[Rfam]
RNA sequence: CGUAAUAAAGGCGAUGGAGUUCGCCAUAACCGCCCGCAAGGGCUGAUGACUCCUACCGGUGA
Numbered sequence: 001c002g003u004a005a006u007a008a009a010g011g012c013g014a015u016g017g018a019g020u021u022c023g024c025c026a027u028a029a030c031c032g033c034c035c036g037c038a039a040g041g042g043c044u045g046a047u048g049a050c051u052c053c054u055a056c057c058g059g060u061g062a
Base pairs, nucleotide, nucleotide: 010025011024012023013022016053017052018051019050020049021048032043033042034041035040

Overview
Fluoride riboswitch aptamer (crcB RNA motif): a 62-nucleotide RNA sequence from Paenibacillus albilobatus. Pairs were carried over by alignment from the consensus structure, which is taken from published work.